RNA sequence: GAUCCGAUAGUAUGGUAGAAAGAUAUCUAUGAAUCCUUCUACCAUACUAGCUAUUAUAGUUAUUGGAGUGUGUAAAGUUC
Numbered sequence: 001g002a003u004c005c006g007a008u009a010g011u012a013u014g015g016u017a018g019a020a021a022g023a024u025a026u027c028u029a030u031g032a033a034u035c036c037u038u039c040u041a042c043c044a045u046a047c048u049a050g051c052u053a054u055u056a057u058a059g060u061u062a063u064u065g066g067a068g069u070g071u072g073u074a075a076a077g078u079u080c
Base pairs, nucleotide, nucleotide: 006051008049009048010047011046012045013044014043015042016041017040018039019038020037022035023028